[Rfam]
RNA sequence: GCCGAACGCUAGGGGUCCUGGUCGCAGCCGUCUACAGGCUGAUGCGCCGGGUGAGAGAUACCCUUGAACCUGAUCUGGAUAAUGCCAGCGAAGGGAAGCACUGCAGGCGGCAG
Number, nucleotide and partner (000 for none) at each position: 001g000002c000003c000004g000005a000006a000007c000008g099009c098010u097011a064012g063013g062014g061015g000016u058017c051018c050019u049020g048021g047022u000023c000024g000025c000026a000027g000028c000029c000030g000031u000032c000033u000034a000035c000036a000037g000038g000039c000040u000041g000042a000043u000044g000045c000046g000047c021048c020049g019050g018051g017052u000053g000054a000055g000056a000057g000058a016059u000060a000061c014062c013063c012064u011065u000066g000067a000068a000069c094070c093071u092072g000073a000074u000075c088076u087077g086078g085079a000080u000081a000082a000083u000084g000085c078086c077087a076088g075089c000090g000091a000092a071093g070094g069095g000096a000097a010098g009099c008100a000101c000102u000103g000104c000105a000106g000107g000108c000109g000110g000111c000112a000113g000
RNA: TPP riboswitch aptamer (THI element)